[Rfam]
RNA sequence: AACCCAUCCAGAGCGGCUGAGAGAUCUGGCUCAGUGACGCCGCAGCAACCUUCGUCCCGGCAGGGCGAAAGGUGCUUCCGCCAGGACCGAUGGAUA
Numbered sequence: 001a002a003c004c005c006a007u008c009c010a011g012a013g014c015g016g017c018u019g020a021g022a023g024a025u026c027u028g029g030c031u032c033a034g035u036g037a038c039g040c041c042g043c044a045g046c047a048a049c050c051u052u053c054g055u056c057c058c059g060g061c062a063g064g065g066c067g068a069a070a071g072g073u074g075c076u077u078c079c080g081c082c083a084g085g086a087c088c089g090a091u092g093g094a095u096a
Base pairs, nucleotide, nucleotide: 002095004093005092006091007090008089013043014042015041016040017039021032022031023030026084027083028082029081044076045075046074047073049072050071051069052068053067054066055065056064080088